[Rfam]
RNA sequence: AUACUUACCUGGAUGGGGUCAAUGGGUGAUCAAGAAGGCCUAUGGCCUAGGUUGGUGACUUCCACUGCACUUAGGAGGGGUGCCUGCCUAACGUCUCCUCAGGUAGGAGAGCCUACAUCAUAAUUUGUUGUAGUGGGGACCUGCGUUCGCGCAGUCCCUG
Numbered sequence: 001a002u003a004c005u006u007a008c009c010u011g012g013a014u015g016g017g018g019u020c021a022a023u024g025g026g027u028g029a030u031c032a033a034g035a036a037g038g039c040c041u042a043u044g045g046c047c048u049a050g051g052u053u054g055g056u057g058a059c060u061u062c063c064a065c066u067g068c069a070c071u072u073a074g075g076a077g078g079g080g081u082g083c084c085u086g087c088c089u090a091a092c093g094u095c096u097c098c099u100c101a102g103g104u105a106g107g108a109g110a111g112c113c114u115a116c117a118u119c120a121u122a123a124u125u126u127g128u129u130g131u132a133g134u135g136g137g138g139a140c141c142u143g144c145g146u147u148c149g150c151g152c153a154g155u156c157c158c159u160g
Base pairs, nucleotide, nucleotide: 012119013118014117015116016048017047018046019045020044021043023042024041025040026039027038049089050088051087053086055083056082057081059079060078061077062075063074091114093112094110095109096108098106099105135159136158137157138156139155142153143152144151145150
This 160-nucleotide RNA from Arachis hypogaea belongs to the Rfam family "U1 spliceosomal RNA".
A reference for the family is Zwieb (1997), "The uRNA database", Nucleic Acids Res.
The family is grouped with related families in Rfam's "U1 clan".
Rfam classes the family as a spliceosomal small nuclear RNA.
The organism belongs to Arachis, within Eukaryota.
It scores 133 bits against the family's covariance model.